[Rfam]
RNA sequence: CUGUGCUUUUAGCCUCUUUACGGUGCUGCCUUGUUGACUUCGUAUCAAGCAGCAUUGUACAGGGCUAUGACAGCACAG
Numbered sequence: 001c002u003g004u005g006c007u008u009u010u011a012g013c014c015u016c017u018u019u020a021c022g023g024u025g026c027u028g029c030c031u032u033g034u035u036g037a038c039u040u041c042g043u044a045u046c047a048a049g050c051a052g053c054a055u056u057g058u059a060c061a062g063g064g065c066u067a068u069g070a071c072a073g074c075a076c077a078g
Base pairs, nucleotide, nucleotide: 014064015063016062017061019059020058021057022056023055024054025053026052027051028050030049031048032047033046
Annotation:
Rfam assigns this 78-nucleotide sequence from Anguilla anguilla to the family "mir-103/107 microRNA precursor family". This family consists of the mammalian microRNA (miRNA) precursors mir-103 and mir107. Animal miRNAs are transcribed as ~70nt precursors and subsequently processed by the Dicer enzyme to give a ~22nt product. The base pairs follow the family's consensus structure, which was predicted with RNAalifold. The literature on the family includes a 2002 paper in Genes Dev by Mourelatos et al., "miRNPs: a novel class of ribonucleoproteins containing numerous microRNAs".